[Rfam]
RNA sequence: AGCUGAUGCAUUUUGACGGUCACCUCCCAGUUCCGUCGCAUCAGCUGUUCCCCUCUGGAGGUUCAAGAUCUCCACACUUCAUGGGCCGCGGUUUCCGACGGCCCAUUUUU
Numbered sequence: 001a002g003c004u005g006a007u008g009c010a011u012u013u014u015g016a017c018g019g020u021c022a023c024c025u026c027c028c029a030g031u032u033c034c035g036u037c038g039c040a041u042c043a044g045c046u047g048u049u050c051c052c053c054u055c056u057g058g059a060g061g062u063u064c065a066a067g068a069u070c071u072c073c074a075c076a077c078u079u080c081a082u083g084g085g086c087c088g089c090g091g092u093u094u095c096c097g098a099c100g101g102c103c104c105a106u107u108u109u110u
Stems, first nucleotide, its partner, number of pairs: 001046005007040003016036004056074007082105006089097003
The record is a 110-nucleotide sequence from Brucella anthropi, which matches "Alphaproteobacterial ar15" in Rfam. Rfam 15.1 lists 316 matches to the family in 177 species. The base pairs follow the family's consensus structure. Rfam links the family to the GO term protein binding. Rfam classes the family as a small RNA. Lineage of the source: Bacteria > Pseudomonadota > Alphaproteobacteria > Hyphomicrobiales > Brucella anthropi. The family is grouped with related families in Rfam's "suhB sRNA clan". Rfam's curators put it in the seed alignment.